[Rfam]
RNA sequence: UGUAGGAGACCCUGGUCUGCUGUGCACGGCAACAGGAGGGGUGGAACAAACCCCCUAUCACA
Numbered sequence: 001u002g003u004a005g006g007a008g009a010c011c012c013u014g015g016u017c018u019g020c021u022g023u024g025c026a027c028g029g030c031a032a033c034a035g036g037a038g039g040g041g042u043g044g045a046a047c048a049a050a051c052c053c054c055c056u057a058u059c060a061c062a
Base pairs, nucleotide, nucleotide: 011036012035013034014033018031019030020029021028022027037056038055039054040053041052